[Rfam]
RNA sequence: AAUUCAACUUCAAUAGUACUGUGCAAUACACGGCUUGUGUUAACAAGCCGUGUAUUGCACAGUACUAUUGAAGUUAGAGGAGU
Numbered sequence: 001a002a003u004u005c006a007a008c009u010u011c012a013a014u015a016g017u018a019c020u021g022u023g024c025a026a027u028a029c030a031c032g033g034c035u036u037g038u039g040u041u042a043a044c045a046a047g048c049c050g051u052g053u054a055u056u057g058c059a060c061a062g063u064a065c066u067a068u069u070g071a072a073g074u075u076a077g078a079g080g081a082g083u
Stems, first nucleotide, its partner, number of pairs: 006075005013068004018063012031050003036045002